[Rfam]
RNA sequence: ACCGUCGAGUCGUCGCAGCCAUGGGGAAGAUGUCUGAGGCGAACCGGGGAACCACGUCAGUGGGGUGAAUCGGUCCGUGCGUGCACGGAUCGUAGGGCAAUCCGCGGCCCGAACCCGUCAGCUCACCCGGUAGACGUCGAGGAUGUAGGA
Dot-bracket structure: ..((((...(((((.......................)))))((((((....((......))(((.....(((((((((....)))))))))..((((........))))...))).........)))))).))))..............
About this RNA: The record is a 150-nucleotide RNA from Aeromicrobium yanjiei, which matches "c-di-AMP riboswitch aptamer (ydaO/yuaA leader)" in Rfam. On this family, see Barrick et al., Proc Natl Acad Sci U S A 2004: "New RNA motifs suggest an expanded scope for riboswitches in bacterial genetic control". The organism belongs to Aeromicrobium, within Bacteria.